[Rfam]
RNA sequence: AAAGAAUAUAAUUCGUAGCCGAAGAUAGUAGGUGCUAUUAAAGCUUAAAUUUAUAGCCUGCCGAGGCCGGUAAUAAAUCUAAGUUUACGUUUAAGUUUAUGGUUUAAGCUAAGCUUAAUUUUAGUCUUAAACUUAGUAUUUUAUUAUUACC
Numbered sequence: 001a002a003a004g005a006a007u008a009u010a011a012u013u014c015g016u017a018g019c020c021g022a023a024g025a026u027a028g029u030a031g032g033u034g035c036u037a038u039u040a041a042a043g044c045u046u047a048a049a050u051u052u053a054u055a056g057c058c059u060g061c062c063g064a065g066g067c068c069g070g071u072a073a074u075a076a077a078u079c080u081a082a083g084u085u086u087a088c089g090u091u092u093a094a095g096u097u098u099a100u101g102g103u104u105u106a107a108g109c110u111a112a113g114c115u116u117a118a119u120u121u122u123a124g125u126c127u128u129a130a131a132c133u134u135a136g137u138a139u140u141u142u143a144u145u146a147u148u149a150c151c
Stems, first nucleotide, its partner, number of pairs: 028061006034044003109136005115130004
Shown here is a 151-nucleotide RNA from Halobacteroides halobius, a member of the family "Ribosomal protein L10 leader". The source organism's lineage runs through Bacteria, Bacillati, Clostridia, Halanaerobiales and Halobacteroides halobius. A reference for the family is Yakhnin et al. (2015), "Ribosomal protein L10(L12)4 autoregulates expression of the Bacillus subtilis rplJL operon by a transcription attenuation mechanism", Nucleic Acids Res. About the family: This family is a putative r-protein leader autoregulatory structure found in B. subtilis and other low-GC Gram-positive bacteria. It is located in the 5' untranslated regions of mRNAs encoding ribosomal proteins L10 and L12 (rplJ-rplL). A Rho-independent transcription terminator structure that is probably involved in regulation is included at the 3' end. By type it is a cis-regulatory leader. Its family is annotated with regulation of gene expression in the Gene Ontology.